Notes:
Rfam assigns this 291-nucleotide RNA sequence from Desmophyllum pertusum to the family "RNase MRP". A search with the family's covariance model found it, with a score of 62 bits. Rfam describes the family as follows. RNase MRP is an enzymatically active ribonucleoprotein with two distinct roles in eukaryotes. In mitochondria it plays a direct role in the initiation of mitochondrial DNA replication. In the nucleus it is involved in precursor rRNA processing, where it cleaves the internal transcribed spacer 1 between 18S and 5.8S rRNAs.

RNA sequence: AACCACAGUGAGAGACUAUGCUGCGAAGCUACAAACAGGAGAAAUGGUCUUUGGGUUUUUGACUCAUAAGUCCGCUUCCUCAACAAAACGCUUUUGUUGGCUUUGGAAAAGUCCCGGACCUGCAUGCAGAAAGUGUCAGUCGUAAAGAGGUACGUCUUUCUCGAGUUUAAUGCGCGAAGAAGCUACAUGCUGAGGCUAGGACGAAGGGAAGGACAUUUCUGUCGAAGCAAAGUAAUGCAAGAAGGCAUCUGCGGCUGAUGUCCACUCAACGGGGCUUACUCUCACUGUGUC
Number, nucleotide and partner (000 for none) at each position: 001a000002a000003c000004c289005a288006c287007a286008g285009u284010g283011a282012g000013a000014g000015a000016c241017u240018a000019u239020g238021c237022u000023g000024c105025g104026a103027a102028g101029c100030u000031a000032c000033a000034a000035a000036c000037a000038g081039g080040a000041g078042a077043a076044a000045u000046g000047g000048u000049c000050u000051u000052u000053g000054g000055g000056u000057u000058u000059u000060u000061g000062a000063c000064u000065c000066a000067u000068a000069a000070g000071u000072c000073c000074g000075c000076u043077u042078c041079c000080u039081c038082a000083a000084c000085a000086a000087a000088a000089c000090g000091c000092u000093u000094u000095u000096g000097u000098u000099g000100g029101c028102u027103u026104u025105g024106g000107a000108a000109a277110a276111g275112u000113c274114c273115c271116g000117g000118a000119c000120c000121u000122g000123c000124a000125u000126g136127c135128a134129g000130a000131a000132a000133g000134u128135g127136u126137c000138a000139g151140u150141c149142g000143u148144a000145a000146a000147g000148a143149g141150g140151u139152a000153c000154g214155u213156c212157u000158u210159u209160c208161u207162c206163g000164a000165g202166u201167u200168u000169a000170a000171u000172g197173c000174g000175c194176g000177a000178a000179g000180a000181a000182g190183c189184u000185a000186c000187a000188u000189g183190c182191u000192g000193a000194g175195g000196c000197u172198a000199g000200g167201a166202c165203g000204a000205a000206g162207g161208g160209a159210a158211g000212g156213a155214c154215a000216u000217u000218u000219c000220u000221g000222u000223c000224g000225a000226a000227g000228c000229a000230a000231a000232g000233u000234a000235a000236u000237g021238c020239a019240a017241g016242a000243a000244g262245g261246c260247a259248u258249c257250u000251g000252c000253g000254g000255c000256u000257g249258a248259u247260g246261u245262c244263c000264a000265c000266u000267c000268a000269a000270c000271g115272g000273g114274g113275c111276u110277u109278a000279c000280u000281c000282u011283c010284a009285c008286u007287g006288u005289g004290u000291c000

The source organism's lineage runs through Eukaryota, Metazoa, Cnidaria, Vacatina and Desmophyllum.